The record is a 97-nucleotide sequence from Oryza sativa, which matches "Small nucleolar RNA Z119" in Rfam. NCBI's taxonomy places the organism under Eukaryota, Viridiplantae, Streptophyta, Liliopsida, Oryza sativa.

[Rfam]
Nucleotides: 097
Base pairs, nucleotide, nucleotide: 003095004094005093006092007091043055044054045053046052066082067081068080069079070078
Number, partner (000 for none) and nucleotide at each position: 001000u002000u003095u004094u005093g006092g007091a008000g009000a010000u011000g012000a013000u014000g015000a016000u017000u018000u019000g020000u021000a022000u023000c024000a025000g026000a027000g028000g029000c030000u031000g032000u033000u034000u035000c036000u037000g038000a039000g040000g041000a042000c043055g044054g045053g046052c047000c048000a049000a050000u051000g052046g053045c054044u055043c056000u057000c058000c059000c060000a061000g062000u063000g064000c065000u066082g067081c068080a069079a070078a071000g072000a073000a074000c075000u076000g077000a078070u079069u080068u081067g082066c083000c084000g085000u086000u087000c088000u089000g090000a091007u092006c093005c094004a095003a096000a097000a

By type it is a C/D-box small nucleolar RNA. It is one of the family's seed sequences.